The record is a 77-nucleotide RNA sequence from Setaria italica, which matches "Small nucleolar RNA R160" in Rfam. It scores 88 bits against the family's covariance model. snoR160 is a C/D box small nucleolar RNA, which acts as a methylation guide for 25S ribosomal RNA in plants. snoR160 has been alternatively named snoZ270 in rice. The family's RNA type in Rfam is C/D-box small nucleolar RNA.
[Rfam]
RNA sequence: AGUAAAAUGAGGAGGUCAUAUGAUCUGAAUUGAAUGUUGAUACAUCCAUUCAUGGUCUUCAAAGUUCUCUGAUUGCU
Numbered sequence: 001a002g003u004a005a006a007a008u009g010a011g012g013a014g015g016u017c018a019u020a021u022g023a024u025c026u027g028a029a030u031u032g033a034a035u036g037u038u039g040a041u042a043c044a045u046c047c048a049u050u051c052a053u054g055g056u057c058u059u060c061a062a063a064g065u066u067c068u069c070u071g072a073u074u075g076c077u
Base pairs, nucleotide, nucleotide: 001077002076003075004074005073